Annotation
pan motif: an 83-nucleotide RNA sequence from Clostridium putrefaciens. The organism belongs to Clostridium, within Bacteria. A search with the family's covariance model found it, with a score of 40 bits.
[Rfam]
RNA sequence: UAGUCGAUAUUCUUUUAGAAGUCGAACUUAUAUACAGUAAAACUAAUAUUCAACUUAUAUCCUAUAAGGAAUAAGAGUGAGGA
Numbered sequence: 001u002a003g004u005c006g007a008u009a010u011u012c013u014u015u016u017a018g019a020a021g022u023c024g025a026a027c028u029u030a031u032a033u034a035c036a037g038u039a040a041a042a043c044u045a046a047u048a049u050u051c052a053a054c055u056u057a058u059a060u061c062c063u064a065u066a067a068g069g070a071a072u073a074a075g076a077g078u079g080a081g082g083a
Base pairs, nucleotide, nucleotide: 002028003027004025005024006023007022008021010020011019051079052078054075055074056073057072058071060070061069062068

Overview: By type it is a cis-regulatory element.